[Rfam]
RNA: Eukaryotic large subunit ribosomal RNA, nucleotides 750 to 1057
Organism: Trypanosoma brucei
RNA sequence: GAGUCAAACAGACGCGCAAGGGAGGAGUAUGUAUGUGAGAACUCUUUUCUCGUACUGAAAGGGAGGUGUGAUUUUACACCCGUGGCGUGCGCAAUUUCUCUUUUUUGUGUUUUUGCCCAACGCCGGCCGGCCCCCCGUGGGCUGCGCGCGAGUGUGCCUGUUUGGACCCGAAAGGUGGUGAACUAUGCCUGAACAAGGUGAAGCCCGGGGAAACCCCGGUGGAGGCCUGUAGCGAUGCUGACGUGCAAAUCGCUCGUACGAUUUGGGUAUCGGAGCGAAAGACUCAUCGAACCACCUAGUAGCUGGUU
Numbered sequence: 001g002a003g004u005c006a007a008a009c010a011g012a013c014g015c016g017c018a019a020g021g022g023a024g025g026a027g028u029a030u031g032u033a034u035g036u037g038a039g040a041a042c043u044c045u046u047u048u049c050u051c052g053u054a055c056u057g058a059a060a061g062g063g064a065g066g067u068g069u070g071a072u073u074u075u076a077c078a079c080c081c082g083u084g085g086c087g088u089g090c091g092c093a094a095u096u097u098c099u100c101u102u103u104u105u106u107g108u109g110u111u112u113u114u115g116c117c118c119a120a121c122g123c124c125g126g127c128c129g130g131c132c133c134c135c136c137g138u139g140g141g142c143u144g145c146g147c148g149c150g151a152g153u154g155u156g157c158c159u160g161u162u163u164g165g166a167c168c169c170g171a172a173a174g175g176u177g178g179u180g181a182a183c184u185a186u187g188c189c190u191g192a193a194c195a196a197g198g199u200g201a202a203g204c205c206c207g208g209g210g211a212a213a214c215c216c217c218g219g220u221g222g223a224g225g226c227c228u229g230u231a232g233c234g235a236u237g238c239u240g241a242c243g244u245g246c247a248a249a250u251c252g253c254u255c256g257u258a259c260g261a262u263u264u265g266g267g268u269a270u271c272g273g274a275g276c277g278a279a280a281g282a283c284u285c286a287u288c289g290a291a292c293c294a295c296c297u298a299g300u301a302g303c304u305g306g307u308u
Base pairs, nucleotide, nucleotide: 005164006163007162008161009160010159011158013156014155015154016153017152020051021050022049025046026045027044030041055062056061084124085123086122087121088120091116092115093114126147127146128144129143130142131141132140133139167306168305170303174296175295176294177293178292179291183272185270186269187268188267189266190265191264192263193262194260196228197227198226199225203220204219205218207216208215209214232257233256234255235254237253238252240251241250274284275283